RNA sequence: AGAUAACUCCGAGUCCUCACGGUGAGGAUAGGAGUAACGGCUGUGUGGCACAGCCAUCGACAUACCUGUUCGACCGCGAGAGCGGGACGUUCAACACGAGAGAACAGGCCGUGUCGUAGACCGGCAAAUAUCCCACCUGCGGUACGGGAAGCCUCGCCGUUUACGGCGAGGA
Numbered sequence: 001a002g003a004u005a006a007c008u009c010c011g012a013g014u015c016c017u018c019a020c021g022g023u024g025a026g027g028a029u030a031g032g033a034g035u036a037a038c039g040g041c042u043g044u045g046u047g048g049c050a051c052a053g054c055c056a057u058c059g060a061c062a063u064a065c066c067u068g069u070u071c072g073a074c075c076g077c078g079a080g081a082g083c084g085g086g087a088c089g090u091u092c093a094a095c096a097c098g099a100g101a102g103a104a105c106a107g108g109c110c111g112u113g114u115c116g117u118a119g120a121c122c123g124g125c126a127a128a129u130a131u132c133c134c135a136c137c138u139g140c141g142g143u144a145c146g147g148g149a150a151g152c153c154u155c156g157c158c159g160u161u162u163a164c165g166g167c168g169a170g171g172a
Base pairs, nucleotide, nucleotide: 004037007034008033009032010031013029014028015027016026017025018024019023039055040054041053042052043051058116059115060114061113062112063111065108066107067106068105069104070103071102084097086095131149132148133147134146136142137141152171153170154169155168156167157166158165159164
Rfam assigns this 172-nucleotide RNA sequence from Natronolimnobius baerhuensis to the family "Sense overlapping transcript RNA 0042 (sot)". It is associated with IS1341-type transposase (tnpB) genes, at the 3'-end in H. salinarum NRC-1. Rfam classes the family as a small RNA. NCBI's taxonomy places the organism under Archaea, Methanobacteriota, Halobacteria, Natrialbaceae, Natronolimnobius. It scores 101 bits against the family's covariance model. Rfam 15.1 lists 196 matches to the family in 82 species.